[Rfam]
RNA sequence: GAGCUUGCCCCUAAAGUUAAGGUGUCUAGCUGAUAAUUAGAUUUAAGGGUUAAAUUCCCUUCAAGCUCU
Numbered sequence: 001g002a003g004c005u006u007g008c009c010c011c012u013a014a015a016g017u018u019a020a021g022g023u024g025u026c027u028a029g030c031u032g033a034u035a036a037u038u039a040g041a042u043u044u045a046a047g048g049g050u051u052a053a054a055u056u057c058c059c060u061u062c063a064a065g066c067u068c069u
Base pairs, nucleotide, nucleotide: 001068002067003066004065005064006063007062010022011021012020025041026040027039028038029037045061046060047059048058049057
Rfam assigns this 69-nucleotide sequence from Strongylocentrotus purpuratus to the family "tRNA". Lineage of the source: Eukaryota > Echinodermata > Echinidea > Strongylocentrotidae > Strongylocentrotus. Rfam classes the family as a transfer RNA. Rfam's curators put it in the seed alignment.